[Rfam]
SAM-I/IV (S-adenosyl methionine) riboswitch aptamer: a 111-nucleotide RNA from Sphingomonas piscis. A search with the family's covariance model found it, with a score of 68 bits. The source organism's lineage runs through Bacteria, Pseudomonadati, Alphaproteobacteria, Sphingomonadaceae and Sphingomonas. Its family is annotated with S-adenosylmethionine metabolic process and regulation of gene expression in the Gene Ontology.
RNA sequence: CACCAGCAUCAAGAGUGGGCGAACGCCCACGCCAACCUGCCUUCCCGGGCAAGGUGGCGGUUUCUUUUCUGAAGAAGCGAUGCGGCCGGAGCGGCAACCAAGCGGGCUUCC
Numbered sequence: 001c002a003c004c005a006g007c008a009u010c011a012a013g014a015g016u017g018g019g020c021g022a023a024c025g026c027c028c029a030c031g032c033c034a035a036c037c038u039g040c041c042u043u044c045c046c047g048g049g050c051a052a053g054g055u056g057g058c059g060g061u062u063u064c065u066u067u068u069c070u071g072a073a074g075a076a077g078c079g080a081u082g083c084g085g086c087c088g089g090a091g092c093g094g095c096a097a098c099c100a101a102g103c104g105g106g107c108u109u110c111c
Stems, first nucleotide, its partner, number of pairs: 006083005015030006031058003036054003039050003044106004085095004